Notes
The record is a 212-nucleotide RNA from Salix brachista, which matches "Plant small nucleolar RNA U3" in Rfam. The family is grouped with related families in Rfam's "U3 clan".
[Rfam]
RNA sequence: ACGACCUUACUUGAACAGGAUCUGUUCUAUAGGAUCGUACCUCUGUAUCCUUUAUCACUAAGGAGACAAGAACCUAAGCCUGGUUGAUGAACCAUGACCGUGUGAUCAUAGCGUGAUUAGUGGCUUGAUUAUCCUUGGAUGAUCAUGGCUGCAGAGGAUCGUUCCCGGGCCAUCAUGUGGCUGGGGAUGGUCAUGCGGUUGUCUGACAGGCU
Numbered sequence: 001a002c003g004a005c006c007u008u009a010c011u012u013g014a015a016c017a018g019g020a021u022c023u024g025u026u027c028u029a030u031a032g033g034a035u036c037g038u039a040c041c042u043c044u045g046u047a048u049c050c051u052u053u054a055u056c057a058c059u060a061a062g063g064a065g066a067c068a069a070g071a072a073c074c075u076a077a078g079c080c081u082g083g084u085u086g087a088u089g090a091a092c093c094a095u096g097a098c099c100g101u102g103u104g105a106u107c108a109u110a111g112c113g114u115g116a117u118u119a120g121u122g123g124c125u126u127g128a129u130u131a132u133c134c135u136u137g138g139a140u141g142a143u144c145a146u147g148g149c150u151g152c153a154g155a156g157g158a159u160c161g162u163u164c165c166c167g168g169g170c171c172a173u174c175a176u177g178u179g180g181c182u183g184g185g186g187a188u189g190g191u192c193a194u195g196c197g198g199u200u201g202u203c204u205g206a207c208a209g210g211c212u
Stems, first nucleotide, its partner, number of pairs: 001038002003035001005033003013027006044068003048064005078211005097199012110163004120152006126145008165185002168182005
Overview: The match comes from Rfam's covariance-model search (192 bits). On this family, see Zwieb, Nucleic Acids Res 1997: "The uRNA database". About the family: Small nucleolar RNAs (snoRNAs) are involved in the processing and modification of rRNA in the nucleolus. There are two main classes of snoRNAs: the box C/D class, and the box H/ACA class. The family's consensus secondary structure is taken from published work. Lineage of the source: Eukaryota > eudicotyledons > Pentapetalae > Malpighiales > Salix.